HIV gag stem loop 3 (GSL3): an 84-nucleotide sequence from Lentivirus humimdef1. The organism belongs to Lentivirus humimdef1, within Viruses. Gene Ontology term of the family: viral RNA genome packaging. The base pairs follow the family's consensus structure, which was predicted with PFOLD. Rfam classes the family as a cis-regulatory element. Rfam's curators write: This family consists of several HIV gag stem loop 3 (GSL3) sequences. GSL3 is known to direct specific packaging of HIV-1 genomic RNA. Deletion of GSL3 leads to decreases in both viral RNA packaging and dimerisation.
RNA sequence: GGCCAGGGGGAAAGGAACACUAUAUGCUAAAACAUUUAAUAUGGGCAAGCAGGGAGCUGGAAAAAUUUGCACUUAACCCAGGCC
Dot-bracket structure: ((((.(((....................................................................))).))))
Numbered sequence: 001g002g003c004c005a006g007g008g009g010g011a012a013a014g015g016a017a018c019a020c021u022a023u024a025u026g027c028u029a030a031a032a033c034a035u036u037u038a039a040u041a042u043g044g045g046c047a048a049g050c051a052g053g054g055a056g057c058u059g060g061a062a063a064a065a066u067u068u069g070c071a072c073u074u075a076a077c078c079c080a081g082g083c084c
Stems, first nucleotide, its partner, number of pairs: 001084004006079003